[Rfam]
RNA sequence: UCAUGUCUUCGGGGCAGGGUGAGAGAAGUUUCUUCUCAAUUCCCGAUCGGCGGUAGAGCCCGCGACCUGUUGCCUGACUGGCAACGGCAGACCUGGGGAAGUUCCAGGGCCGACGGUAUAGUCCGGAUGGGAGAAGACAAGG
Number, nucleotide and partner (000 for none) at each position: 001u000002c000003a000004u139005g138006u137007c136008u135009u134010c133011g000012g000013g000014g000015c000016a000017g044018g043019g042020u000021g000022a000023g000024a000025g000026a000027a000028g000029u000030u000031u000032c000033u000034u000035c000036u000037c000038a000039a000040u000041u000042c019043c018044c017045g000046a122047u121048c112049g111050g063051c062052g061053g060054u000055a000056g000057a000058g110059c109060c053061c052062g051063c050064g000065a000066c000067c087068u086069g000070u000071u000072g000073c000074c000075u000076g000077a000078c000079u000080g000081g000082c000083a000084a000085c000086g068087g067088c000089a000090g000091a000092c108093c107094u106095g105096g104097g000098g000099a000100a000101g000102u000103u000104c096105c095106a094107g093108g092109g059110c058111c049112g048113a000114c125115g124116g123117u000118a000119u000120a000121g047122u046123c116124c115125g114126g000127a000128u000129g000130g000131g000132a000133g010134a009135a008136g007137a006138c005139a004140a000141g000142g000